[Rfam]
Rfam assigns this 99-nucleotide RNA sequence to the family "NiCo (Nickel/Cobalt) riboswitch aptamer". On this family, see Furukawa et al., Mol Cell 2015: "Bacterial riboswitches cooperatively bind Ni(2+) or Co(2+) ions and control expression of heavy metal transporters". The family is grouped with related families in Rfam's "NiCo_riboswitches". The base pairs follow the family's consensus structure, which is taken from published work.

RNA sequence: ACAGUACAAAACUGAGCAGGCGAUGAACCUUUAAGGUUCGUGGGGCCGGGCCGCGUGAGCGCGGUAGCAGAUUGCGAGCGUCACAUCUGCGGGACAGUU
Numbered sequence: 001a002c003a004g005u006a007c008a009a010a011a012c013u014g015a016g017c018a019g020g021c022g023a024u025g026a027a028c029c030u031u032u033a034a035g036g037u038u039c040g041u042g043g044g045g046c047c048g049g050g051c052c053g054c055g056u057g058a059g060c061g062c063g064g065u066a067g068c069a070g071a072u073u074g075c076g077a078g079c080g081u082c083a084c085a086u087c088u089g090c091g092g093g094a095c096a097g098u099u
Stems, first nucleotide, its partner, number of pairs: 010098001012097003017093001019047003023041006050065005067090006